[Rfam]
RNA sequence: CGGGUCGAGAGGCGCUGCGACGGACGAUGUCCGCCACGCUCGACCCGGCUGAUCUGCACCAAGGGCGCCUCCGAUUC
Numbered sequence: 001c002g003g004g005u006c007g008a009g010a011g012g013c014g015c016u017g018c019g020a021c022g023g024a025c026g027a028u029g030u031c032c033g034c035c036a037c038g039c040u041c042g043a044c045c046c047g048g049c050u051g052a053u054c055u056g057c058a059c060c061a062a063g064g065g066c067g068c069c070u071c072c073g074a075u076u077c
Stems, first nucleotide, its partner, number of pairs: 002046007021033005
RNA: SAH (S-adenosyl-L-homocysteine) riboswitch aptamer